[Rfam]
RNA sequence: UAUAAAAUUAAUAUGAAAACUUGUAUAAUCCUUCAUAUCGGGAAGGAGUCUCUACCUAACACCAAUGUUAGAUUAUGAGUUUUAUGGUUUUCGCU
Numbered sequence: 001u002a003u004a005a006a007a008u009u010a011a012u013a014u015g016a017a018a019a020c021u022u023g024u025a026u027a028a029u030c031c032u033u034c035a036u037a038u039c040g041g042g043a044a045g046g047a048g049u050c051u052c053u054a055c056c057u058a059a060c061a062c063c064a065a066u067g068u069u070a071g072a073u074u075a076u077g078a079g080u081u082u083u084a085u086g087g088u089u090u091u092c093g094c095u
Base pairs, nucleotide, nucleotide: 018081019080020079021078022077023076024075025074029047030046031045032044033043034042056071057070058069059068060067061066
The record is a 95-nucleotide sequence from Mesoplasma florum, which matches "Purine riboswitch aptamer" in Rfam. Rfam links the family to the GO term purine nucleobase biosynthetic process. Rfam's curators write: Riboswitches are metabolite binding domains within certain messenger RNAs that serve as precision sensors for their corresponding targets.